[Rfam]
RNA sequence: CCUGAUGACGGCGAUGGAGUCCGCCUGACCGGUGUGAUCGACACCGGCGAAGUGUCACCUGGCUGAUGGCUCCUACCUCCCA
Numbered sequence: 001c002c003u004g005a006u007g008a009c010g011g012c013g014a015u016g017g018a019g020u021c022c023g024c025c026u027g028a029c030c031g032g033u034g035u036g037a038u039c040g041a042c043a044c045c046g047g048c049g050a051a052g053u054g055u056c057a058c059c060u061g062g063c064u065g066a067u068g069g070c071u072c073c074u075a076c077c078u079c080c081c082a
Base pairs, nucleotide, nucleotide: 010025011024012023013022016073017072018071019070020069021068054063055062056061
RNA: Fluoride riboswitch aptamer (crcB RNA motif)
Organism: Acidothermus cellulolyticus